Background:
Small nucleolar RNA SNORD24: a 75-nucleotide sequence from Paulinella micropora.

RNA sequence: AGUCGAUGAUUACAAACUAUUUGCUACUCUUGAGAUCAUCAGUGACGAGACACAACCACCAAGAUCUCUGAGACU
Numbered sequence: 001a002g003u004c005g006a007u008g009a010u011u012a013c014a015a016a017c018u019a020u021u022u023g024c025u026a027c028u029c030u031u032g033a034g035a036u037c038a039u040c041a042g043u044g045a046c047g048a049g050a051c052a053c054a055a056c057c058a059c060c061a062a063g064a065u066c067u068c069u070g071a072g073a074c075u
Base pairs, nucleotide, nucleotide: 001075002074003073004072
Rfam classes the family as a C/D-box small nucleolar RNA.
The match comes from Rfam's covariance-model search (51 bits).
NCBI's taxonomy places the organism under Eukaryota, Sar, Rhizaria, Euglyphida, Paulinella.